[Rfam]
RNA sequence: UGUGUGUGUGUGUGUGUGUGUUGAACUAGUGGACAGAGACAUAAAGACAGACACAAGAAUAAAGUUGCUUUUUGCAGCCCGGAAGUCACUGUUCAUCAAUAUGAGUAUUGAUACAUUUAAGAGAAAAAUG
Dot-bracket structure: (((((.(((.(..((.(.(((....(....).))).).))....).))).))))).........((.(.(((((.....(((.(.(((.............))).).))).......)))))).))....
Numbered sequence: 001u002g003u004g005u006g007u008g009u010g011u012g013u014g015u016g017u018g019u020g021u022u023g024a025a026c027u028a029g030u031g032g033a034c035a036g037a038g039a040c041a042u043a044a045a046g047a048c049a050g051a052c053a054c055a056a057g058a059a060u061a062a063a064g065u066u067g068c069u070u071u072u073u074g075c076a077g078c079c080c081g082g083a084a085g086u087c088a089c090u091g092u093u094c095a096u097c098a099a100u101a102u103g104a105g106u107a108u109u110g111a112u113a114c115a116u117u118u119a120a121g122a123g124a125a126a127a128a129u130g
Stems, first nucleotide, its partner, number of pairs: 001055005007049003011045001014040002017037001019035003026031001065126002068123001070122005080110003084106001086104003
The record is a 130-nucleotide RNA from Cricetulus griseus, which matches "Small nucleolar RNA SNORA40" in Rfam. The match comes from Rfam's covariance-model search (63 bits). A reference for the family is Ofengand and Bakin (1997), "Mapping to nucleotide resolution of pseudouridine residues in large subunit ribosomal RNAs from representative eukaryotes, prokaryotes, archaebacteria, mitochondria and chloroplasts", J Mol Biol. It is annotated as an H/ACA-box small nucleolar RNA. Rfam's curators write: The snoRNA ACA 40 belongs to the H/ACA family of snoRNAs and guides the pseudouridylation of 28S rRNA subunit at position U4565. NB This family has a high threshold value to exclude a large number of closely related sequences that do not appear to have conserved H and ACA boxes, and may be pseudogenes. The source organism's lineage runs through Eukaryota, Eumetazoa, Teleostomi, Myomorpha and Cricetulus. The family has 28 seed sequences and 2,550 matches in Rfam 15.1.